RNA sequence: UCAACCUGGAUACCCCAGGAAGUCACUGUCUCUGGCCCCUGUCCACGUGGCACAGGGGAACACAGGCUUUGCUCCAUGAUGUCCAGGCCCUUUCACAGCAUUGGAGAUGAAGCUGGGCUUUGUGUGUACAUCUGCAUAUUCCUAAAACUUCUCAGAAUCCUGUGGACAAUGACCGAGAAGAUAAACCAAGCAGAAAACAUGG
Numbered sequence: 001u002c003a004a005c006c007u008g009g010a011u012a013c014c015c016c017a018g019g020a021a022g023u024c025a026c027u028g029u030c031u032c033u034g035g036c037c038c039c040u041g042u043c044c045a046c047g048u049g050g051c052a053c054a055g056g057g058g059a060a061c062a063c064a065g066g067c068u069u070u071g072c073u074c075c076a077u078g079a080u081g082u083c084c085a086g087g088c089c090c091u092u093u094c095a096c097a098g099c100a101u102u103g104g105a106g107a108u109g110a111a112g113c114u115g116g117g118c119u120u121u122g123u124g125u126g127u128a129c130a131u132c133u134g135c136a137u138a139u140u141c142c143u144a145a146a147a148c149u150u151c152u153c154a155g156a157a158u159c160c161u162g163u164g165g166a167c168a169a170u171g172a173c174c175g176a177g178a179a180g181a182u183a184a185a186c187c188a189a190g191c192a193g194a195a196a197a198c199a200u201g202g
Stems, first nucleotide, its partner, number of pairs: 001104004007098001008044005014035002018029001020027001047096004056090003062082003065077001131194005137188001148180006158166003
A member of the RNA family "Small nucleolar RNA SNORA73 family" from Marmota marmota, 202 nucleotides long. Rfam's curators write: U17 (SNORA73A and SNORA73B) also known as E1 belongs to the H/ACA class of small nucleolar RNAs (snoRNAs). Vertebrate U17 is intron-encoded and ranges in length from 200-230 nucleotides, longer than most snoRNAs. It is one of the most abundant snoRNAs in human cells and is essential for the cleavage of pre-rRNA within the 5' external transcribed spacer (ETS). This cleavage leads to the formation of 18S rRNA. Regions of the U17 RNA are complementary to rRNA and act as guides for RNA/RNA interactions, although these regions do not seem to be well conserved between organisms. On this family, see Cervelli et al., J Mol Evol 2002: "Comparative Structure Analysis of Vertebrate U17 Small Nucleolar RNA (snoRNA)". NCBI's taxonomy places the organism under Eukaryota, Tetrapoda, Glires, Marmotini, Marmota marmota. Clan: snR30-U17 clan.